Shown here is an 83-nucleotide RNA sequence from Lactobacillus selangorensis, a member of the family "SAM-III riboswitch aptamer (SMK box)". Gene Ontology terms of the family: regulation of translational initiation and methionine adenosyltransferase activity.

RNA sequence: UAGUGCUAUAUUGCUUCCCGAUAGGAUCCGUCUUGACGGCGGAGAAGCCUUGUAACCACAAAUUUUUAGGGGGAAAAACAUUG
Numbered sequence: 001u002a003g004u005g006c007u008a009u010a011u012u013g014c015u016u017c018c019c020g021a022u023a024g025g026a027u028c029c030g031u032c033u034u035g036a037c038g039g040c041g042g043a044g045a046a047g048c049c050u051u052g053u054a055a056c057c058a059c060a061a062a063u064u065u066u067u068a069g070g071g072g073g074a075a076a077a078a079c080a081u082u083g
Stems, first nucleotide, its partner, number of pairs: 015075005023050003027043005056070002